[Rfam]
RNA sequence: AUACUAUGACAGUUUCGUUGUUCAGCAAAUUGAAUCAUGAAGAGAUGUAUACCAUCUGUCUGAUGUAUCU
Numbered sequence: 001a002u003a004c005u006a007u008g009a010c011a012g013u014u015u016c017g018u019u020g021u022u023c024a025g026c027a028a029a030u031u032g033a034a035u036c037a038u039g040a041a042g043a044g045a046u047g048u049a050u051a052c053c054a055u056c057u058g059u060c061u062g063a064u065g066u067a068u069c070u
Stems, first nucleotide, its partner, number of pairs: 001068004006038004013028002016025001043057005
Dot-bracket structure: ((((.((((...((.(........).))......))))....(((((.....))))).......))))..

Small nucleolar RNA SNORD77: a 70-nucleotide sequence from Macaca mulatta. The family's RNA type in Rfam is C/D-box small nucleolar RNA. Rfam describes the family as follows. U77 belongs to the C/D family of snoRNAs. It is predicted to guide 2'O-ribose methylation of large 28S rRNA subunit at position A1521. The C/D snoRNAs U44, U47, U74, U75, U76, U78, U79, U80 and U81 share the same host gene as U77 (non-coding). It scores 67 bits against the family's covariance model.